[Rfam]
The family of this 107-nucleotide sequence from Prunus yedoensis is "MIR6274 microRNA precursor family". The organism belongs to Prunus yedoensis, within Eukaryota. A search with the family's covariance model found it, with a score of 81 bits. Gene Ontology terms of the family: miRNA-mediated post-transcriptional gene silencing and RISC complex. Pairs were carried over by alignment from the consensus structure, which was predicted with RNAalifold.

RNA sequence: GGAUAGUACUGUUUUGCUAUCUUCGGCCAAUAAUGCAAUGACACGUGAAAAAAUUAUCUCACGUGUCAUUACUCUAUUGGUCGGAAAUUGCAUGAAAGUCUCUCUCC
Numbered sequence: 001g002g003a004u005a006g007u008a009c010u011g012u013u014u015u016g017c018u019a020u021c022u023u024c025g026g027c028c029a030a031u032a033a034u035g036c037a038a039u040g041a042c043a044c045g046u047g048a049a050a051a052a053a054u055u056a057u058c059u060c061a062c063g064u065g066u067c068a069u070u071a072c073u074c075u076a077u078u079g080g081u082c083g084g085a086a087a088u089u090g091c092a093u094g095a096a097a098g099u100c101u102c103u104c105u106c107c
Stems, first nucleotide, its partner, number of pairs: 002106002005103001012095002015092003019088002022085011035072001037070012050057001